[Rfam]
Annotation: Shown here is a 193-nucleotide RNA from Moraxella pluranimalium, a member of the family "6S / SsrS RNA". Rfam 15.1 lists 5,006 matches to the family in 4,638 species. The organism belongs to Moraxella, within Bacteria.

RNA sequence: AGCACACUGAAGUACUCGCCAGUGAAGCGUAUUCCUGAGCCGAUAAUCUUAUUUUAGGAUUUGGGUUCAAUGUUUCUGUUGUGCAGGCCUGCAUCCUUGUGAUGAAUCAGGAAGCCGUAAUGAGCAUUACUCUUAUCCGCCUUGAACUUCACGGUUCAUGGUCACCCCUUUACAGCGGUACUUUGGUUCUUUU
Numbered sequence: 001a002g003c004a005c006a007c008u009g010a011a012g013u014a015c016u017c018g019c020c021a022g023u024g025a026a027g028c029g030u031a032u033u034c035c036u037g038a039g040c041c042g043a044u045a046a047u048c049u050u051a052u053u054u055u056a057g058g059a060u061u062u063g064g065g066u067u068c069a070a071u072g073u074u075u076c077u078g079u080u081g082u083g084c085a086g087g088c089c090u091g092c093a094u095c096c097u098u099g100u101g102a103u104g105a106a107u108c109a110g111g112a113a114g115c116c117g118u119a120a121u122g123a124g125c126a127u128u129a130c131u132c133u134u135a136u137c138c139g140c141c142u143u144g145a146a147c148u149u150c151a152c153g154g155u156u157c158a159u160g161g162u163c164a165c166c167c168c169u170u171u172a173c174a175g176c177g178g179u180a181c182u183u184u185g186g187u188u189c190u191u192u193u
Stems, first nucleotide, its partner, number of pairs: 002191001006187010017177003033161001035160001036158006057138003063132004070127005076122001083115002088111004